[Rfam]
RNA sequence: GAAAAUAAUAGAACAAUUCGUCGUAUAAUCUUGAGAAUAAGGCUCUAGAGUUUCUACCUGACCACCGUAAAUGGUCUGACUACGCAGAAGAAUAGAAGGAAU
Numbered sequence: 001g002a003a004a005a006u007a008a009u010a011g012a013a014c015a016a017u018u019c020g021u022c023g024u025a026u027a028a029u030c031u032u033g034a035g036a037a038u039a040a041g042g043c044u045c046u047a048g049a050g051u052u053u054c055u056a057c058c059u060g061a062c063c064a065c066c067g068u069a070a071a072u073g074g075u076c077u078g079a080c081u082a083c084g085c086a087g088a089a090g091a092a093u094a095g096a097a098g099g100a101a102u
Base pairs, nucleotide, nucleotide: 018088019087022084023083024082025081029049030048031047033045034044035043058078060076061075062074063073064072
This 102-nucleotide sequence from Natronobacillus azotifigens belongs to the Rfam family "Purine riboswitch aptamer".
The match comes from Rfam's covariance-model search (83 bits).
Riboswitches are metabolite binding domains within certain messenger RNAs that serve as precision sensors for their corresponding targets.